[Rfam]
RNA: SAM riboswitch aptamer (S box leader)
Organism: Amphibacillus marinus
RNA sequence: CGUUUAUAAAGAGUGGACGAGAGAACUGGCUCUGUGACUCCACGGCAACCUGCCAAGGUAAGGUGCCCCGACCAGCAAAGUAAUGACUUGCUUUGGAUGAUGAAGA
Numbered sequence: 001c002g003u004u005u006a007u008a009a010a011g012a013g014u015g016g017a018c019g020a021g022a023g024a025a026c027u028g029g030c031u032c033u034g035u036g037a038c039u040c041c042a043c044g045g046c047a048a049c050c051u052g053c054c055a056a057g058g059u060a061a062g063g064u065g066c067c068c069c070g071a072c073c074a075g076c077a078a079a080g081u082a083a084u085g086a087c088u089u090g091c092u093u094u095g096g097a098u099g100a101u102g103a104a105g106a
Stems, first nucleotide, its partner, number of pairs: 003104005013043005021032003026075004044067004049063002051060003071098001076095006